[Rfam]
This 107-nucleotide sequence from Orenia marismortui belongs to the Rfam family "TPP riboswitch aptamer (THI element)".
A search with the family's covariance model found it, with a score of 81 bits.
NCBI's taxonomy places the organism under Bacteria, Bacillati, Clostridia, Halobacteroidaceae, Orenia.
RNA sequence: AGUUACUGCUGGGGGAGUUAUGUUAUAGCUGAGAAAGAAAUUUGAUUUCUUGACCCCUUGAACCUGAUCUAGGUAAUACUAGCGGAGGGAAGUGGGCUUUUGAGAAG
Numbered sequence: 001a002g003u004u005a006c007u008g009c010u011g012g013g014g015g016a017g018u019u020a021u022g023u024u025a026u027a028g029c030u031g032a033g034a035a036a037g038a039a040a041u042u043u044g045a046u047u048u049c050u051u052g053a054c055c056c057c058u059u060g061a062a063c064c065u066g067a068u069c070u071a072g073g074u075a076a077u078a079c080u081a082g083c084g085g086a087g088g089g090a091a092g093u094g095g096g097c098u099u100u101u102g103a104g105a106a107g
Stems, first nucleotide, its partner, number of pairs: 006095005011057004016051001017029005036050005063088003069082004
Dot-bracket structure: .....(((((((((.((((((...)))))......(((((.....))))))..)))).....(((...((((......))))...)))..)))))............